[Rfam]
RNA: Small nucleolar RNA SNORA3/SNORA45 family
Organism: Nannospalax galili
RNA sequence: GUCGAGGCUAGAGUCACACUUGGGUACUGGAGCUGCCUUGGUGUGCUCGAGUCCUUGAGGAUAACUGGUGACCUUAUUCACCGGCUGUGGGCCUCACAGCACAGUCAAGUCACCAGGUUAGUGACAUGG
Numbered sequence: 001g002u003c004g005a006g007g008c009u010a011g012a013g014u015c016a017c018a019c020u021u022g023g024g025u026a027c028u029g030g031a032g033c034u035g036c037c038u039u040g041g042u043g044u045g046c047u048c049g050a051g052u053c054c055u056u057g058a059g060g061a062u063a064a065c066u067g068g069u070g071a072c073c074u075u076a077u078u079c080a081c082c083g084g085c086u087g088u089g090g091g092c093c094u095c096a097c098a099g100c101a102c103a104g105u106c107a108a109g110u111c112a113c114c115a116g117g118u119u120a121g122u123g124a125c126a127u128g129g
Stems, first nucleotide, its partner, number of pairs: 002058005007052003012047002015045006023037004069120006080110002083106002086103004